Shown here is a 100-nucleotide sequence from Clostridium butyricum, a member of the family "Purine riboswitch aptamer". The source organism's lineage runs through Bacteria, Bacillati, Clostridia, Clostridiaceae and Clostridium butyricum. The base pairs follow the family's consensus structure, which is taken from published work.

[Rfam]
RNA sequence: UGAGACGAUAACACAAACACUCGUAUAUUUUCAGGAAUAUGGCUUGAAAGUUUCUACCUGCUACCGUUAUUAGCAGACUAUGAGGUGUAAUAUUGUAAAA
Numbered sequence: 001u002g003a004g005a006c007g008a009u010a011a012c013a014c015a016a017a018c019a020c021u022c023g024u025a026u027a028u029u030u031u032c033a034g035g036a037a038u039a040u041g042g043c044u045u046g047a048a049a050g051u052u053u054c055u056a057c058c059u060g061c062u063a064c065c066g067u068u069a070u071u072a073g074c075a076g077a078c079u080a081u082g083a084g085g086u087g088u089a090a091u092a093u094u095g096u097a098a099a100a
Base pairs, nucleotide, nucleotide: 020084021083022082023081024080025079029049030048031047032046033045034044035043058076059075060074061073062072063071